The family of this 122-nucleotide RNA from Pseudoxanthomonas sp. Root65 is "Glycine riboswitch aptamer".
Lineage of the source: Bacteria > Pseudomonadota > Gammaproteobacteria > Lysobacteraceae > Pseudoxanthomonas.
RNA sequence: CAACGACACUCUGGAGAGACCGGCCGCCCUCGCGGCAGCGCCGGCGCCGAAGGGGCACGAAGCACGCGACCUCCUCGUCGGCGCGCUUCCAAACUCUCAGGCAAAAGGACAGAGGGGCAUCC
Numbered sequence: 001c002a003a004c005g006a007c008a009c010u011c012u013g014g015a016g017a018g019a020c021c022g023g024c025c026g027c028c029c030u031c032g033c034g035g036c037a038g039c040g041c042c043g044g045c046g047c048c049g050a051a052g053g054g055g056c057a058c059g060a061a062g063c064a065c066g067c068g069a070c071c072u073c074c075u076c077g078u079c080g081g082c083g084c085g086c087u088u089c090c091a092a093a094c095u096c097u098c099a100g101g102c103a104a105a106a107g108g109a110c111a112g113a114g115g116g117g118c119a120u121c122c
Stems, first nucleotide, its partner, number of pairs: 007116001009114005020044004046102003049098002053096003059089005